RNA sequence: UGCAGCCCAGUCAAAUUCGGUCCCUGUCCCCCAGUGUCGGGGACCGGCCAUCGGCUGCCACAGCAACCUCCAUGCUCCACGUGCCCCAUGUCCCCUUCUGUGGGACCUGGGGAGAUGGAUCCCUGUGGACACAU
Numbered sequence: 001u002g003c004a005g006c007c008c009a010g011u012c013a014a015a016u017u018c019g020g021u022c023c024c025u026g027u028c029c030c031c032c033a034g035u036g037u038c039g040g041g042g043a044c045c046g047g048c049c050a051u052c053g054g055c056u057g058c059c060a061c062a063g064c065a066a067c068c069u070c071c072a073u074g075c076u077c078c079a080c081g082u083g084c085c086c087c088a089u090g091u092c093c094c095c096u097u098c099u100g101u102g103g104g105a106c107c108u109g110g111g112g113a114g115a116u117g118g119a120u121c122c123c124u125g126u127g128g129a130c131a132c133a134u
Stems, first nucleotide, its partner, number of pairs: 002058004018046009028036001072126003084112005
Small nucleolar RNA SNORA5: a 134-nucleotide RNA from Malurus cyaneus.
It scores 56 bits against the family's covariance model.
The organism belongs to Malurus cyaneus, within Eukaryota.
The family is grouped with related families in Rfam's "SNORA5 clan".
Rfam's curators write: ACA5 is a member of the H/ACA class of snoRNA that guide the sites of modification of uridines to pseudouridines.